[Rfam]
RNA: epsC RNA
Organism: Mesobacillus boroniphilus
RNA sequence: UGGUGAUGUCUCCUAGCCGUUAUCAAAGGAGGCACUCGGUCAUGCUGUGGGUUGAAUAAACCUUAGACGCUCUGGUCGUCGGGAGUGUGAUGUGAGGGGGGGUUGAAUGCCCC
Numbered sequence: 001u002g003g004u005g006a007u008g009u010c011u012c013c014u015a016g017c018c019g020u021u022a023u024c025a026a027a028g029g030a031g032g033c034a035c036u037c038g039g040u041c042a043u044g045c046u047g048u049g050g051g052u053u054g055a056a057u058a059a060a061c062c063u064u065a066g067a068c069g070c071u072c073u074g075g076u077c078g079u080c081g082g083g084a085g086u087g088u089g090a091u092g093u094g095a096g097g098g099g100g101g102g103u104u105g106a107a108u109g110c111c112c113c
Base pairs, nucleotide, nucleotide: 001019002018003017004016007034008033009032010031011030012029013028035096036095037094038093039091040090041089042088043087044086045085046084049063050062051061052060053059066080067079068078069077099113100112101111102110103109